The record is a 102-nucleotide RNA sequence from Litchfieldia stipae, which matches "Purine riboswitch aptamer" in Rfam. Lineage of the source: Bacteria > Bacillati > Bacillota > Bacillaceae > Litchfieldia. Gene Ontology term of the family: purine nucleobase biosynthetic process.
RNA sequence: ACAAACUAUAGAACAUUAUCUCGUAUAAUCUUGGGAAUAUGGCCCAUAAGUUUCUACCAAGUUACCGUAAAUGACUUGACUACGAGUGAUACACUGACAUUA
Numbered sequence: 001a002c003a004a005a006c007u008a009u010a011g012a013a014c015a016u017u018a019u020c021u022c023g024u025a026u027a028a029u030c031u032u033g034g035g036a037a038u039a040u041g042g043c044c045c046a047u048a049a050g051u052u053u054c055u056a057c058c059a060a061g062u063u064a065c066c067g068u069a070a071a072u073g074a075c076u077u078g079a080c081u082a083c084g085a086g087u088g089a090u091a092c093a094c095u096g097a098c099a100u101u102a
Stems, first nucleotide, its partner, number of pairs: 020086006029049001032046004058078007